Shown here is a 129-nucleotide RNA sequence from Marinithermus hydrothermalis, a member of the family "FMN riboswitch aptamer (RFN element)".
RNA sequence: CAGCUCCUUCGGGGCAGGGUGGAAUUCCCGACCGGCGGUGACAGCCCGCGAAGCCUUAGGCCCGGCCUAAGGCCCGACCCGGUGGAACUCCGGGGCCGACGGUGACAGUCCGGAUGGGAGAAGGAGGUG
Numbered sequence: 001c002a003g004c005u006c007c008u009u010c011g012g013g014g015c016a017g018g019g020u021g022g023a024a025u026u027c028c029c030g031a032c033c034g035g036c037g038g039u040g041a042c043a044g045c046c047c048g049c050g051a052a053g054c055c056u057u058a059g060g061c062c063c064g065g066c067c068u069a070a071g072g073c074c075c076g077a078c079c080c081g082g083u084g085g086a087a088c089u090c091c092g093g094g095g096c097c098g099a100c101g102g103u104g105a106c107a108g109u110c111c112g113g114a115u116g117g118g119a120g121a122a123g124g125a126g127g128u129g
Stems, first nucleotide, its partner, number of pairs: 004126007017029003031109002033098002035049004044096002053073002078094005100112003
Dot-bracket structure: ...(((((((......(((.......))).[[((((((.....[[))))...((.................))....(((((.......)))))]])).(((.....]]))).......)))))))...
From the family's description: The RFN element is a highly conserved domain that is found frequently in the 5'-untranslated regions of prokaryotic mRNAs that encode for flavin mononucleotide (FMN) biosynthesis and transport proteins. NCBI's taxonomy places the organism under Bacteria, Deinococcota, Deinococci, Thermales, Marinithermus hydrothermalis. The base pairs follow the family's consensus structure, which is taken from published work.